[Rfam]
RNA: DUF805b RNA
RNA sequence: ACAGGAUUAGCCGAAAACCUGUAUAAGAGAGUAGGCG
Numbered sequence: 001a002c003a004g005g006a007u008u009a010g011c012c013g014a015a016a017a018c019c020u021g022u023a024u025a026a027g028a029g030a031g032u033a034g035g036c037g
Base pairs, nucleotide, nucleotide: 002021003020004019005018010036011035012034